RNA sequence: CAUUGGCUUAGUUAGGGGGCAUAAAUCGAUUCCGAUCGGAAUUCCUGAUUCCGGUCAUUAAACGGGCCGAGGGCAUUUGAGGGGACAACUGUUGCUUCUCCACCAAUUGUCCUCCAAGCAGCCUCUGGACAUUC
Numbered sequence: 001c002a003u004u005g006g007c008u009u010a011g012u013u014a015g016g017g018g019g020c021a022u023a024a025a026u027c028g029a030u031u032c033c034g035a036u037c038g039g040a041a042u043u044c045c046u047g048a049u050u051c052c053g054g055u056c057a058u059u060a061a062a063c064g065g066g067c068c069g070a071g072g073g074c075a076u077u078u079g080a081g082g083g084g085a086c087a088a089c090u091g092u093u094g095c096u097u098c099u100c101c102a103c104c105a106a107u108u109g110u111c112c113u114c115c116a117a118g119c120a121g122c123c124u125c126u127g128g129a130c131a132u133u134c
Stems, first nucleotide, its partner, number of pairs: 004021002007018003034056010067128002069125004076118004081114008

Shown here is a 134-nucleotide RNA from Punica granatum, a member of the family "Small nucleolar RNA U19". It scores 69 bits against the family's covariance model. Pairs were carried over by alignment from the consensus structure, which was predicted with WAR. By type it is an H/ACA-box small nucleolar RNA. For this family Rfam cites "Experimental RNomics: identification of 140 candidates for small non-messenger RNAs in the plant Arabidopsis thaliana" (Marker et al., Curr Biol, 2002).